[Rfam]
RNA sequence: CCCACGGCUGAAAGCCGUGGGCUAUGAUCUGCCGUCCCUACCGGGACU
Numbered sequence: 001c002c003c004a005c006g007g008c009u010g011a012a013a014g015c016c017g018u019g020g021g022c023u024a025u026g027a028u029c030u031g032c033c034g035u036c037c038c039u040a041c042c043g044g045g046a047c048u
Base pairs, nucleotide, nucleotide: 001021002020003019004018005017006016007015008014034047035046036045037044038043

Background: This 48-nucleotide RNA sequence from Verrucomicrobiaceae bacterium SCGC AG-212-N21 belongs to the Rfam family "Acido-Lenti-1 RNA".